[Rfam]
RNA sequence: AUAAAAUUCGGAGCGUCGGUCUACCGAGCAAUUUCAUCCGCUCGGUAGAAGUUAUUCCCUUUGUCGU
Numbered sequence: 001a002u003a004a005a006a007u008u009c010g011g012a013g014c015g016u017c018g019g020u021c022u023a024c025c026g027a028g029c030a031a032u033u034u035c036a037u038c039c040g041c042u043c044g045g046u047a048g049a050a051g052u053u054a055u056u057c058c059c060u061u062u063g064u065c066g067u
Stems, first nucleotide, its partner, number of pairs: 004064001006062001010058003015053001017051001020049010

A member of the RNA family "mir-2774 microRNA precursor family" from Bombyx mori, 67 nucleotides long. It scores 75 bits against the family's covariance model. For this family Rfam cites "MicroRNAs of Bombyx mori identified by Solexa sequencing" (Liu et al., BMC Genomics, 2010).